The family of this 75-nucleotide RNA sequence from Sphingobium indicum is "Makes More Granules Regulator RNA (mmgR)".
[Rfam]
RNA sequence: AGGAGGUGCCUUUCAGGCAUCCUCUCCUAAACUUUCAUGGGCUGGUCUUCGGAUCGGCCCUUUUUUUGUGCGUUU
Numbered sequence: 001a002g003g004a005g006g007u008g009c010c011u012u013u014c015a016g017g018c019a020u021c022c023u024c025u026c027c028u029a030a031a032c033u034u035u036c037a038u039g040g041g042c043u044g045g046u047c048u049u050c051g052g053a054u055c056g057g058c059c060c061u062u063u064u065u066u067u068g069u070g071c072g073u074u075u
Stems, first nucleotide, its partner, number of pairs: 008018004039060009
Taxonomically the source falls in Sphingobium indicum (Bacteria, Pseudomonadati, Alphaproteobacteria, Sphingomonadales). Clan: suhB sRNA clan. Rfam classes the family as a small RNA. It scores 49 bits against the family's covariance model.